[Rfam]
RNA sequence: UCAUUCUUCAAAGUGGUUGUGAAAUGUUUGCCUUUUUAUGCCUAUUCAUAUCACAGCCAGCUUUGAGGAGCGACG
Numbered sequence: 001u002c003a004u005u006c007u008u009c010a011a012a013g014u015g016g017u018u019g020u021g022a023a024a025u026g027u028u029u030g031c032c033u034u035u036u037u038a039u040g041c042c043u044a045u046u047c048a049u050a051u052c053a054c055a056g057c058c059a060g061c062u063u064u065g066a067g068g069a070g071c072g073a074c075g
Stems, first nucleotide, its partner, number of pairs: 005069009014059009025050003
A member of the RNA family "mir-2 microRNA precursor family" from Drosophila melanogaster, 75 nucleotides long.
The organism belongs to Sophophora, within Eukaryota.